The record is an 86-nucleotide RNA sequence from Bacillus sp. FJAT-49736, which matches "c-di-GMP-I riboswitch aptamer" in Rfam. Rfam describes the family as follows. GEMM was predicted in a large-scale screen for bacterial structured RNA regulatory elements. The source organism's lineage runs through Bacteria, Bacillati, Bacillota, Caryophanales and Bacillus. Its Rfam clan is "c-di-GMP_I riboswitch clan".

RNA sequence: UUCCGAUAAAAGCAUACUUAUUGAAAAAUAAGGACGCAAAGCUGCGGGCCUAAAGCAUUGAAUGCUAUGGUAGCCGAGCCGCCGUU
Number, nucleotide and partner (000 for none) at each position: 001u000002u000003c000004c000005g000006a000007u000008a000009a000010a000011a000012g037013c036014a000015u000016a000017c032018u031019u030020a029021u028022u027023g000024a000025a000026a000027a022028a021029u020030a019031a018032g017033g000034a000035c000036g013037c012038a000039a000040a000041g079042c078043u077044g000045c076046g075047g074048g071049c070050c069051u000052a000053a000054a000055g065056c064057a063058u062059u000060g000061a000062a058063u057064g056065c055066u000067a000068u000069g050070g049071u048072a000073g000074c047075c046076g045077a043078g042079c041080c000081g000082c000083c000084g000085u000086u000